Shown here is a 104-nucleotide RNA sequence from Cryobacterium cheniae, a member of the family "Glycine riboswitch aptamer".
The source organism's lineage runs through Bacteria, Bacillati, Micrococcales, Microbacteriaceae and Cryobacterium.
From the family's description: This family represents the bacterial glycine riboswitch.
[Rfam]
RNA sequence: CCACUCUGAAAAGUAGUCGCGGCACCAGCGCGGCUCGCCCAUGGUGAAAAUCGCACCCGACCAACGGAUGCGGUGAAGCUCUCAGGCCUGACGACAGAGGGGGA
Numbered sequence: 001c002c003a004c005u006c007u008g009a010a011a012a013g014u015a016g017u018c019g020c021g022g023c024a025c026c027a028g029c030g031c032g033g034c035u036c037g038c039c040c041a042u043g044g045u046g047a048a049a050a051u052c053g054c055a056c057c058c059g060a061c062c063a064a065c066g067g068a069u070g071c072g073g074u075g076a077a078g079c080u081c082u083c084a085g086g087c088c089u090g091a092c093g094a095c096a097g098a099g100g101g102g103g104a
Base pairs, nucleotide, nucleotide: 001102002101004099005098006097007096008095015035016034017033018032019031020030021029037087038086039085041082044081046079050074051073052072053071054070055069